[Rfam]
RNA sequence: UUCCAUCUUCGGGGCAGGGUGAAAUUCCCGACCGACGGUGAUGAACCCUUUGGUGUUCUAAGUCCGUGACCCGUUAAGGUUGGCAAGUAUGGUUGCUUCCUUCCUUAACGGUGGACCUGGUGAGAAUCCGGGACCGACAGUUACAGUCUGGAUGGGAGAAGAUGUCG
Numbered sequence: 001u002u003c004c005a006u007c008u009u010c011g012g013g014g015c016a017g018g019g020u021g022a023a024a025u026u027c028c029c030g031a032c033c034g035a036c037g038g039u040g041a042u043g044a045a046c047c048c049u050u051u052g053g054u055g056u057u058c059u060a061a062g063u064c065c066g067u068g069a070c071c072c073g074u075u076a077a078g079g080u081u082g083g084c085a086a087g088u089a090u091g092g093u094u095g096c097u098u099c100c101u102u103c104c105u106u107a108a109c110g111g112u113g114g115a116c117c118u119g120g121u122g123a124g125a126a127u128c129c130g131g132g133a134c135c136g137a138c139a140g141u142u143a144c145a146g147u148c149u150g151g152a153u154g155g156g157a158g159a160a161g162a163u164g165u166c167g
Stems, first nucleotide, its partner, number of pairs: 004164007017029003031147002033136002035067004062134002071111009116132005138150003
Shown here is a 167-nucleotide RNA from Pontibacillus halophilus, a member of the family "FMN riboswitch aptamer (RFN element)".
It scores 110 bits against the family's covariance model.
Its family is annotated with FMN binding in the Gene Ontology.